[Rfam]
RNA sequence: UUUUACGUGGUUCGUAACCAUCCCACGAAAAAAAACUAAGGAGAA
Number, nucleotide and partner (000 for none) at each position: 001u000002u000003u000004u000005a000006c027007g026008u025009g024010g023011u000012u000013c000014g000015u038016a037017a000018c000019c000020a000021u000022c000023c010024c009025a008026c007027g006028a000029a000030a000031a000032a000033a000034a000035a000036c000037u016038a015039a000040g000041g000042a000043g000044a000045a000
Record summary: The record is a 45-nucleotide RNA from Kurthia sibirica, which matches "PreQ1 (pre queuosine) riboswitch aptamer" in Rfam. From the family's description: This family is a bacterial riboswitch that binds to the metabolite preQ1, an intermediate in the biosynthesis of the modified nucleoside queuosine from GTP. One example of this riboswitch is located in the leader of the Bacillus subtilis ykvJKLM (queCDEF) operon which encodes four genes necessary for queuosine production. PreQ1 binding to the riboswitch aptamer is thought to induce premature transcription termination within the leader to down-regulate expression of these genes. The organism belongs to Kurthia, within Bacteria.